Background:
Shown here is a 63-nucleotide RNA sequence from Monodelphis domestica, a member of the family "mir-7398 microRNA precursor family". The source organism's lineage runs through Eukaryota, Bilateria, Chordata, Didelphinae and Monodelphis. Gene Ontology terms of the family: RISC complex and miRNA-mediated post-transcriptional gene silencing.

[Rfam]
RNA sequence: UGUGUAGAGCCAAGAAAUACGUCGUGUUUUCUCUCUCUCGGUAAAUUUCUUGCCUCUCUCAUU
Numbered sequence: 001u002g003u004g005u006a007g008a009g010c011c012a013a014g015a016a017a018u019a020c021g022u023c024g025u026g027u028u029u030u031c032u033c034u035c036u037c038u039c040g041g042u043a044a045a046u047u048u049c050u051u052g053c054c055u056c057u058c059u060c061a062u063u
Stems, first nucleotide, its partner, number of pairs: 002060001004058001006057004011052007021042003